[Rfam]
RNA sequence: GUAAACUACCCACCACUGAACGGAGUACCGUUUCAGUGGGGGCUUUAAAAGCCCAGAGUUUACCCGACUAAGUACCUUGAGUACUAAGAUUUUUGGGUCAUCUUACCUACAAAUACGCAGCCAGUUUGUAGCUCUAAGGUUAACAGUUAAACAGAAUCAUUGGGUUUGAGUCAGUGCUGUUAGCGUAAAAAGCCUUUAAAUCAUUGUCCAGGCUAACAUUAC
Numbered sequence: 001g002u003a004a005a006c007u008a009c010c011c012a013c014c015a016c017u018g019a020a021c022g023g024a025g026u027a028c029c030g031u032u033u034c035a036g037u038g039g040g041g042g043c044u045u046u047a048a049a050a051g052c053c054c055a056g057a058g059u060u061u062a063c064c065c066g067a068c069u070a071a072g073u074a075c076c077u078u079g080a081g082u083a084c085u086a087a088g089a090u091u092u093u094u095g096g097g098u099c100a101u102c103u104u105a106c107c108u109a110c111a112a113a114u115a116c117g118c119a120g121c122c123a124g125u126u127u128g129u130a131g132c133u134c135u136a137a138g139g140u141u142a143a144c145a146g147u148u149a150a151a152c153a154g155a156a157u158c159a160u161u162g163g164g165u166u167u168g169a170g171u172c173a174g175u176g177c178u179g180u181u182a183g184c185g186u187a188a189a190a191a192g193c194c195u196u197u198a199a200a201u202c203a204u205u206g207u208c209c210a211g212g213c214u215a216a217c218a219u220u221a222c
Base pairs, nucleotide, nucleotide: 001063002062003061004060005059006058007057010042011041013039014038015037016036017035018034019033020032044051045050066208067207068206070204071085072084073083074082075081088202089201090200091199092198095195096194097193098192103137104136107131108130109129110128111127112126113125114124119214120213121212122211139184140183141182142181143180144179145178146177147176151175152174154172155171157169158168159167